[Rfam]
RNA sequence: UUUUAAUUAAAGGGGAUCAUUGUAGAAGCGUGCUUGUCGCGACCCCUGCCAACCCUUUUCAGGGCUGCAAUUCUACA
Numbered sequence: 001u002u003u004u005a006a007u008u009a010a011a012g013g014g015g016a017u018c019a020u021u022g023u024a025g026a027a028g029c030g031u032g033c034u035u036g037u038c039g040c041g042a043c044c045c046c047u048g049c050c051a052a053c054c055c056u057u058u059u060c061a062g063g064g065c066u067g068c069a070a071u072u073c074u075a076c077a
Stems, first nucleotide, its partner, number of pairs: 013046003017042002021077007028040003050067002053064004
Mammalian CPEB3 ribozyme: a 77-nucleotide sequence from Parnassius apollo. A search with the family's covariance model found it, with a score of 47 bits. A reference for the family is Salehi-Ashtiani et al. (2006), "A genomewide search for ribozymes reveals an HDV-like sequence in the human CPEB3 gene", Science. The family's consensus secondary structure is taken from published work. The source organism's lineage runs through Eukaryota, Hexapoda, Amphiesmenoptera, Papilionoidea and Parnassius. About the family: The mammalian CPEB3 ribozyme is a self cleaving RNA located in the second intron of the CPEB3 gene which belongs to a family of genes regulating messenger RNA polyadenylation.